A member of the RNA family "Streptomyces RNA 5676" from Streptomyces olivoverticillatus, 130 nucleotides long. Identified by deep sequencing of transcriptome at the end of exponential growth phase. Appears longer on northern blot than sequencing transcript. The family's RNA type in Rfam is small RNA. The base pairs follow the family's consensus structure. It scores 106 bits against the family's covariance model.
RNA sequence: AGAUGAAGGAAACACCCCGUCCGCAGGGGACUGCGGGCGACGCCGUGCCGGUACUUCCCCAGUGCCGGACCGGUCGUGCCCUCGCGCACACCACUGGAGCCCUGGGCUCCGGAAAUCCUCACCGAUCGGA
Numbered sequence: 001a002g003a004u005g006a007a008g009g010a011a012a013c014a015c016c017c018c019g020u021c022c023g024c025a026g027g028g029g030a031c032u033g034c035g036g037g038c039g040a041c042g043c044c045g046u047g048c049c050g051g052u053a054c055u056u057c058c059c060c061a062g063u064g065c066c067g068g069a070c071c072g073g074u075c076g077u078g079c080c081c082u083c084g085c086g087c088a089c090a091c092c093a094c095u096g097g098a099g100c101c102c103u104g105g106g107c108u109c110c111g112g113a114a115a116u117c118c119u120c121a122c123c124g125a126u127c128g129g130a
Stems, first nucleotide, its partner, number of pairs: 004121003009117002018039009042074004049067006076089004094112008122129002